Overview: tRNA: a 74-nucleotide RNA from Dictyostelium discoideum. A reference for the family is Hou (1993), "The tertiary structure of tRNA and the development of the genetic code", Trends Biochem Sci. The organism belongs to Dictyostelium, within Eukaryota.
RNA sequence: GUUCGGAUGGUGUAGUCGGUUAUCACGAAUCCUUAACACGGAUUAGGUCGUGGGUUCGAUUCCCGCUCUGAAUA
Numbered sequence: 001g002u003u004c005g006g007a008u009g010g011u012g013u014a015g016u017c018g019g020u021u022a023u024c025a026c027g028a029a030u031c032c033u034u035a036a037c038a039c040g041g042a043u044u045a046g047g048u049c050g051u052g053g054g055u056u057c058g059a060u061u062c063c064c065g066c067u068c069u070g071a072a073u074a
Base pairs, nucleotide, nucleotide: 001073002072003071004070005069006068007067010026011025012024028044029043030042031041032040050066051065052064053063054062